[Rfam]
RNA sequence: UGCGCAACGCGUGUUUCAAGACAAUGUCGGAAAACUUGACACCCUUGAGCCGGGCCGUGCGGAUGUAUUGCGCGGUCAUCACCUCGGUCAUGGACGCCCGCGUCAUCCGUGCGAUGUAGCCCAUGCCAUAGAGGGAAAUGGUCAGUACCGGCAGGGUGAAAUUCUCAAAUGUGGCGUUC
Numbered sequence: 001u002g003c004g005c006a007a008c009g010c011g012u013g014u015u016u017c018a019a020g021a022c023a024a025u026g027u028c029g030g031a032a033a034a035c036u037u038g039a040c041a042c043c044c045u046u047g048a049g050c051c052g053g054g055c056c057g058u059g060c061g062g063a064u065g066u067a068u069u070g071c072g073c074g075g076u077c078a079u080c081a082c083c084u085c086g087g088u089c090a091u092g093g094a095c096g097c098c099c100g101c102g103u104c105a106u107c108c109g110u111g112c113g114a115u116g117u118a119g120c121c122c123a124u125g126c127c128a129u130a131g132a133g134g135g136a137a138a139u140g141g142u143c144a145g146u147a148c149c150g151g152c153a154g155g156g157u158g159a160a161a162u163u164c165u166c167a168a169a170u171g172u173g174g175c176g177u178u179c
Stems, first nucleotide, its partner, number of pairs: 005140002010135001012133001014131002016128001021124001029122002040111003046105003051100004055075008082096001084094002145179001147177001149174001151172003154165003

The record is a 179-nucleotide RNA from Roseobacter denitrificans, which matches "Ruegeria cis52 sRNA" in Rfam. The family's consensus secondary structure was predicted with RNAfold. The family has 2 seed sequences and 277 matches in Rfam 15.1. The source organism's lineage runs through Bacteria, Alphaproteobacteria, Rhodobacterales, Roseobacteraceae and Roseobacter denitrificans. Rfam classes the family as a small RNA. A reference for the family is Rivers et al. (2016), "Experimental Identification of Small Non-Coding RNAs in the Model Marine Bacterium Ruegeria pomeroyi DSS-3", Front Microbiol.